[Rfam]
RNA sequence: AGAAGGGCUUCCGGGACGUUCGUCUUGGGGGCCUUUUUCUUUUGC
Number, nucleotide and partner (000 for none) at each position: 001a000002g000003a000004a000005g034006g033007g032008c031009u030010u029011c028012c027013g000014g000015g024016a023017c022018g000019u000020u000021c000022g017023u016024c015025u000026u000027g012028g011029g010030g009031g008032c007033c006034u005035u000036u000037u000038u000039c000040u000041u000042u000043u000044g000045c000